[Rfam]
RNA: Nitrogen stress-induced RNA 1
RNA sequence: UGGUAGAUGCACCCUGAUACUUAACUCCCUGAAUUAGCUAACACUUUCUUGGAGAUUUUUGU
Numbered sequence: 001u002g003g004u005a006g007a008u009g010c011a012c013c014c015u016g017a018u019a020c021u022u023a024a025c026u027c028c029c030u031g032a033a034u035u036a037g038c039u040a041a042c043a044c045u046u047u048c049u050u051g052g053a054g055a056u057u058u059u060u061g062u
Stems, first nucleotide, its partner, number of pairs: 002013003027054001029052004036045002